Shown here is a 118-nucleotide RNA, a member of the family "LOOT RNA". Pairs were carried over by alignment from the consensus structure, which is taken from published work. It is annotated as a small RNA.

RNA sequence: AGCCUAAACCUUUGGAAACAAAGGCAUGGUGAAGAAAUCUGCAACAGUAUAAAGAACCCAUCAUAUGGGGUACUGUUGCAGUCAUAUCUGGAAACGGAUAUGGAAGGCCUCGGCCUUC
Number, nucleotide and partner (000 for none) at each position: 001a000002g030003c029004c028005u000006a000007a000008a000009c024010c023011u022012u021013u020014g019015g000016a000017a000018a000019c014020a013021a012022a011023g010024g009025c000026a000027u000028g004029g003030u002031g000032a000033a000034g000035a000036a000037a000038u000039c081040u080041g079042c078043a077044a076045c075046a074047g073048u072049a071050u000051a000052a000053a000054g000055a000056a000057c069058c068059c067060a000061u000062c000063a000064u000065a000066u000067g059068g058069g057070g000071u049072a048073c047074u046075g045076u044077u043078g042079c041080a040081g039082u000083c102084a101085u100086a099087u098088c097089u096090g095091g000092a000093a000094a000095c090096g089097g088098a087099u086100a085101u084102g083103g118104a117105a116106g115107g114108c113109c000110u000111c000112g000113g108114c107115c106116u105117u104118c103